Overview: Small nucleolar RNA snR191: a 246-nucleotide RNA sequence from Elaphomyces granulatus. By type it is an H/ACA-box small nucleolar RNA. It scores 59 bits against the family's covariance model.
RNA sequence: UCCCAUCGCUAAGUCAAGACCUCUUCCUGUGCAAUCCAUUGCCGUUUUCUCAAUGGAAGCUUCGUCUGUUACAGCCUUGGGAGAUUAAGGACUGCCCGCCACUCAUCUUCUUCUGGAGAUGGGAUGACAAAGCUCUCGUUUUGGAAGCUUAGUCGCCUAGGGCCAUGCCGUGCUUUGUUUGAGUUGAGUUCUACUUCUACUUUCUAGUGGCUCGUAGUAGAACUCGUAGUUACAUUUCAUACAUUA
Numbered sequence: 001u002c003c004c005a006u007c008g009c010u011a012a013g014u015c016a017a018g019a020c021c022u023c024u025u026c027c028u029g030u031g032c033a034a035u036c037c038a039u040u041g042c043c044g045u046u047u048u049c050u051c052a053a054u055g056g057a058a059g060c061u062u063c064g065u066c067u068g069u070u071a072c073a074g075c076c077u078u079g080g081g082a083g084a085u086u087a088a089g090g091a092c093u094g095c096c097c098g099c100c101a102c103u104c105a106u107c108u109u110c111u112u113c114u115g116g117a118g119a120u121g122g123g124a125u126g127a128c129a130a131a132g133c134u135c136u137c138g139u140u141u142u143g144g145a146a147g148c149u150u151a152g153u154c155g156c157c158u159a160g161g162g163c164c165a166u167g168c169c170g171u172g173c174u175u176u177g178u179u180u181g182a183g184u185u186g187a188g189u190u191c192u193a194c195u196u197c198u199a200c201u202u203u204c205u206a207g208u209g210g211c212u213c214g215u216a217g218u219a220g221a222a223c224u225c226g227u228a229g230u231u232a233c234a235u236u237u238c239a240u241a242c243a244u245u246a
Base pairs, nucleotide, nucleotide: 003080004079005078017067018066019065020064023059024058025057026056027055029043031042032041033040092167094163095162096161097160100126104121105120106119107118108117109116110115128152132148133147134146136144137143138142170240171239172238176234177233178232185226186225187224188223189222192219193218194217195216198209199208200207
Annotation: Its Rfam clan is "SNORA74 clan". The source organism's lineage runs through Eukaryota, Opisthokonta, leotiomyceta, Elaphomycetaceae and Elaphomyces. A reference for the family is Badis et al. (2003), "A snoRNA that guides the two most conserved pseudouridine modifications within rRNA confers a growth advantage in yeast", RNA. Pairs were carried over by alignment from the consensus structure, which was predicted with WAR.